[Rfam]
RNA sequence: AUCCAAGUGCAAGGGCAUUAUGCUUACCAGUGAAGACUCGUCUGAGGUGGCAUUUUUGCUAGUUGAAAACUACUAAACUUUGACUGCUUCUGUUGGCUUUCGAGUCGGCAGGGAAUUUUUGAACAACCCGAUACAUCUGUCAUGGAU
Numbered sequence: 001a002u003c004c005a006a007g008u009g010c011a012a013g014g015g016c017a018u019u020a021u022g023c024u025u026a027c028c029a030g031u032g033a034a035g036a037c038u039c040g041u042c043u044g045a046g047g048u049g050g051c052a053u054u055u056u057u058g059c060u061a062g063u064u065g066a067a068a069a070c071u072a073c074u075a076a077a078c079u080u081u082g083a084c085u086g087c088u089u090c091u092g093u094u095g096g097c098u099u100u101c102g103a104g105u106c107g108g109c110a111g112g113g114a115a116u117u118u119u120u121g122a123a124c125a126a127c128c129c130g131a132u133a134c135a136u137c138u139g140u141c142a143u144g145g146a147u
Stems, first nucleotide, its partner, number of pairs: 020053005026048003034043003088113011

Rfam assigns this 147-nucleotide RNA sequence from Aulographum hederae to the family "U4 spliceosomal RNA". The match comes from Rfam's covariance-model search (95 bits). Rfam classes the family as a spliceosomal small nuclear RNA. Rfam describes the family as follows. U4 small nuclear RNA (U4 snRNA) is a component of the major U2-dependent spliceosome. The family's consensus secondary structure is taken from published work.